[Rfam]
RNA sequence: AUCUACACUGAGUGGCCAGAUUGUUAUUAUAUCUGAAUGUAUAACAAUCUGGCCACUCAGUGUGUAU
Number, nucleotide and partner (000 for none) at each position: 001a000002u000003c000004u064005a063006c062007a061008c060009u059010g058011a057012g056013u055014g054015g053016c052017c051018a000019g049020a048021u047022u046023g045024u044025u043026a042027u041028u000029a000030u000031a000032u000033c000034u000035g000036a000037a000038u000039g000040u000041a027042u026043a025044a024045c023046a022047a021048u020049c019050u000051g017052g016053c015054c014055a013056c012057u011058c010059a009060g008061u007062g006063u005064g004065u000066a000067u000